[Rfam]
RNA sequence: UGGUCUGGGCGUAAGCUCUUUGGACCACCGUAGGCGGGAUGAAGUUCC
Numbered sequence: 001u002g003g004u005c006u007g008g009g010c011g012u013a014a015g016c017u018c019u020u021u022g023g024a025c026c027a028c029c030g031u032a033g034g035c036g037g038g039a040u041g042a043a044g045u046u047c048c
Base pairs, nucleotide, nucleotide: 001027002026003025004024005023006022007018008017009016010015
Dot-bracket structure: ((((((((((....))))...)))))).....................
The record is a 48-nucleotide RNA sequence, which matches "DUF3800-XI RNA" in Rfam.
Actinobacteria, Firmicutes, Proteobacteria, Spirochaetes (1 example).